RNA sequence: UAAAUGAAUGGCGAAGGAGUUCGCCCUAAACCACUGUAGAACAGUUGAUGACUCCUGUAAAACU
Numbered sequence: 001u002a003a004a005u006g007a008a009u010g011g012c013g014a015a016g017g018a019g020u021u022c023g024c025c026c027u028a029a030a031c032c033a034c035u036g037u038a039g040a041a042c043a044g045u046u047g048a049u050g051a052c053u054c055c056u057g058u059a060a061a062a063c064u
Base pairs, nucleotide, nucleotide: 010025011024012023013022016055017054018053019052020051021050033045034044035043036042

Shown here is a 64-nucleotide RNA sequence from Isachenkonia alkalipeptolytica, a member of the family "Fluoride riboswitch aptamer (crcB RNA motif)". The source organism's lineage runs through Bacteria, Bacillati, Eubacteriales, Clostridiaceae and Isachenkonia. A search with the family's covariance model found it, with a score of 49 bits.